This 111-nucleotide RNA sequence belongs to the Rfam family "Actinomyces-1 RNA". It is annotated as a small RNA.
[Rfam]
RNA sequence: AGCACCGUUGGACAGGAUCGGUCCCGAGGGUUGGGGAGCCCGUUGAAAGACCGCAUCUCUGAGAUGGCGCUGGGUCAUAGGGAGCCUAGAACCGUCGUUCCGGCGAAGGAG
Numbered sequence: 001a002g003c004a005c006c007g008u009u010g011g012a013c014a015g016g017a018u019c020g021g022u023c024c025c026g027a028g029g030g031u032u033g034g035g036g037a038g039c040c041c042g043u044u045g046a047a048a049g050a051c052c053g054c055a056u057c058u059c060u061g062a063g064a065u066g067g068c069g070c071u072g073g074g075u076c077a078u079a080g081g082g083a084g085c086c087u088a089g090a091a092c093c094g095u096c097g098u099u100c101c102g103g104c105g106a107a108g109g110a111g
Stems, first nucleotide, its partner, number of pairs: 006105007013061004018055001019053005028041005063096005071088005